Shown here is a 150-nucleotide RNA from Alkalihalobacillus alcalophilus, a member of the family "FMN riboswitch aptamer (RFN element)". The match comes from Rfam's covariance-model search (110 bits). Rfam links the family to the GO term FMN binding. Taxonomically the source falls in Alkalihalobacillus alcalophilus (Bacteria, Bacillota, Bacilli, Bacillaceae).
[Rfam]
RNA sequence: AUGAAUCUUCGGGGUUAGGUGAAAUUCCUUACCGGCGGUGAUGAUUUAUGAUAAAUCUAAGCCCGCGACUCUUUAAGUGCUAGUCAUUUAAGGACUGACUUGGUGACAAUCCAAGGCCGACGGUUAAAGUCCGGAUGGGAGGAGAUCGAA
Dot-bracket structure: ....((((((......(((.......))).[[((((((......................[[))))...((((.................))))....(((((.......)))))]])).(((.....]]))).......))))))....